The family of this 95-nucleotide RNA sequence is "Glycine riboswitch aptamer". A search with the family's covariance model found it, with a score of 62 bits. The pairing is the family consensus, mapped onto this sequence. Rfam links the family to the GO term glycine biosynthetic process.

RNA sequence: AUAGCCACCGCGGGAGAGUUCCCCCUAUCGAAGGAGGGACGCCGAAGGUGCAACUUCUCCCCAGAAUCUCUCAGGCCCUGUACCGCGUUGGUGAG
Numbered sequence: 001a002u003a004g005c006c007a008c009c010g011c012g013g014g015a016g017a018g019u020u021c022c023c024c025c026u027a028u029c030g031a032a033g034g035a036g037g038g039a040c041g042c043c044g045a046a047g048g049u050g051c052a053a054c055u056u057c058u059c060c061c062c063a064g065a066a067u068c069u070c071u072c073a074g075g076c077c078c079u080g081u082a083c084c085g086c087g088u089u090g091g092u093g094a095g
Stems, first nucleotide, its partner, number of pairs: 006090002009087005020039004041076003044072002048070001050068001054064002